Rfam assigns this 77-nucleotide sequence from Sorex araneus to the family "Small nucleolar RNA SNORD19". By type it is a C/D-box small nucleolar RNA. Rfam links the family to the GO terms RNA processing and nucleolus. Taxonomically the source falls in Sorex (Eukaryota, Opisthokonta, Teleostomi, Eutheria). For this family Rfam cites "RNomics: an experimental approach that identifies 201 candidates for novel, small, non-messenger RNAs in mouse" (Huttenhofer et al., EMBO J, 2001).

RNA sequence: GAGGUAUGAGGAAAACAUCUGAACAGUCUGACUGUCACUGAAGACUGAUAAGAUCCAACUCUGACCUCAGCAAAAGC
Numbered sequence: 001g002a003g004g005u006a007u008g009a010g011g012a013a014a015a016c017a018u019c020u021g022a023a024c025a026g027u028c029u030g031a032c033u034g035u036c037a038c039u040g041a042a043g044a045c046u047g048a049u050a051a052g053a054u055c056c057a058a059c060u061c062u063g064a065c066c067u068c069a070g071c072a073a074a075a076g077c
Stems, first nucleotide, its partner, number of pairs: 001068004